[Rfam]
RNA sequence: UUCCGGUUGAUCCUGCCGGAGGUCAUUGCUAUUGGGGUCCGAUUUAGCCAUGCCAGUUGCACGAGUUCAUACUCGUGGCGAAAAGCUCAGUAACACGUGGCCAAACUACCCUACAGAGAACGAUAACCUCGGGAAACUGAGGCUAAUAGUUCAUACGGGAGUCAUGCUGGAAUGCCGACUCCCCGAAACGCUCAGGCGCUGUAGGAUGUGGCUGCGGCCGAUUAGGUAGACGGUGGGGUAACGGCCCACCGUGCCGAUAAUCGGUACGGGUUGUGAGAGCAAGAGCCCGGAGACGGAAUCUGAGACAAGAUUCCGGGCCCUACGGGGCGCAGCAGGCGCGAAACCUUUACACUGCACGCAAGUGCGAUAAGGGGACCCCAAGUGCGAGGGCAUAUAGUCCUCGCUUUUCUCGACUGUAAGGCGGUCGAGGAAUAAGAGCUGGGCAAGACCGGUGCCAGCCGCCGCGGUAAUACCGGCAGCUCAAGUGAUGACCGAUAUUAUUG
Numbered sequence: 001u002u003c004c005g006g007u008u009g010a011u012c013c014u015g016c017c018g019g020a021g022g023u024c025a026u027u028g029c030u031a032u033u034g035g036g037g038u039c040c041g042a043u044u045u046a047g048c049c050a051u052g053c054c055a056g057u058u059g060c061a062c063g064a065g066u067u068c069a070u071a072c073u074c075g076u077g078g079c080g081a082a083a084a085g086c087u088c089a090g091u092a093a094c095a096c097g098u099g100g101c102c103a104a105a106c107u108a109c110c111c112u113a114c115a116g117a118g119a120a121c122g123a124u125a126a127c128c129u130c131g132g133g134a135a136a137c138u139g140a141g142g143c144u145a146a147u148a149g150u151u152c153a154u155a156c157g158g159g160a161g162u163c164a165u166g167c168u169g170g171a172a173u174g175c176c177g178a179c180u181c182c183c184c185g186a187a188a189c190g191c192u193c194a195g196g197c198g199c200u201g202u203a204g205g206a207u208g209u210g211g212c213u214g215c216g217g218c219c220g221a222u223u224a225g226g227u228a229g230a231c232g233g234u235g236g237g238g239u240a241a242c243g244g245c246c247c248a249c250c251g252u253g254c255c256g257a258u259a260a261u262c263g264g265u266a267c268g269g270g271u272u273g274u275g276a277g278a279g280c281a282a283g284a285g286c287c288c289g290g291a292g293a294c295g296g297a298a299u300c301u302g303a304g305a306c307a308a309g310a311u312u313c314c315g316g317g318c319c320c321u322a323c324g325g326g327g328c329g330c331a332g333c334a335g336g337c338g339c340g341a342a343a344c345c346u347u348u349a350c351a352c353u354g355c356a357c358g359c360a361a362g363u364g365c366g367a368u369a370a371g372g373g374g375a376c377c378c379c380a381a382g383u384g385c386g387a388g389g390g391c392a393u394a395u396a397g398u399c400c401u402c403g404c405u406u407u408u409c410u411c412g413a414c415u416g417u418a419a420g421g422c423g424g425u426c427g428a429g430g431a432a433u434a435a436g437a438g439c440u441g442g443g444c445a446a447g448a449c450c451g452g453u454g455c456c457a458g459c460c461g462c463c464g465c466g467g468u469a470a471u472a473c474c475g476g477c478a479g480c481u482c483a484a485g486u487g488a489u490g491a492c493c494g495a496u497a498u499u500a501u502u503g
Stems, first nucleotide, its partner, number of pairs: 003019005021493010032381009041339001047337003051334003056079003061076006086292003096216007105209002110205007118152004127142006157183007166175002190197002218264003225255003230252008267289004271282004294315006317328004345371001347370003353366005384404008409429007436482006449476004458465002
Shown here is a 503-nucleotide part of an RNA, a member of the family "Archaeal small subunit ribosomal RNA". The family is grouped with related families in Rfam's "SSU clan". A reference for the family is Cannone et al. (2002), "The comparative RNA web (CRW) site: an online database of comparative sequence and structure information for ribosomal, intron, and other RNAs", BMC Bioinformatics. Pairs were carried over by alignment from the consensus structure, which is taken from published work.